Pseudomonas sRNA P14: a 146-nucleotide RNA sequence from Pseudomonas taeanensis.
Lineage of the source: Bacteria > Pseudomonadati > Pseudomonadales > Pseudomonas > Pseudomonas taeanensis.
On this family, see Livny et al., Nucleic Acids Res 2006: "Identification of 17 Pseudomonas aeruginosa sRNAs and prediction of sRNA-encoding genes in 10 diverse pathogens using the bioinformatic tool sRNAPredict2".
Rfam classes the family as a small RNA.
The base pairs follow the family's consensus structure, which was predicted with WAR.
RNA sequence: CUGUAUGUUUUUUAUACAACCCAUCGUUAUUAGCUGGUACGCGCUGCCGUAUAGUGAAAAAAACAUGCUGCGCUUGCAUCGUCUGCGUUUACUUACUAAAACUUAUGGGUAGUAUGUACGCCGGCUGAUUUCCUAUCGUUUGGGAA
Numbered sequence: 001c002u003g004u005a006u007g008u009u010u011u012u013u014a015u016a017c018a019a020c021c022c023a024u025c026g027u028u029a030u031u032a033g034c035u036g037g038u039a040c041g042c043g044c045u046g047c048c049g050u051a052u053a054g055u056g057a058a059a060a061a062a063a064c065a066u067g068c069u070g071c072g073c074u075u076g077c078a079u080c081g082u083c084u085g086c087g088u089u090u091a092c093u094u095a096c097u098a099a100a101a102c103u104u105a106u107g108g109g110u111a112g113u114a115u116g117u118a119c120g121c122c123g124g125c126u127g128a129u130u131u132c133c134u135a136u137c138g139u140u141u142g143g144g145a146a
Base pairs, nucleotide, nucleotide: 037077038076039075041073042072043071044070046069048067049066050065052063081125082124083123087121088120090118091117092116094114095113096112097111098110101106129146130145131144132143133142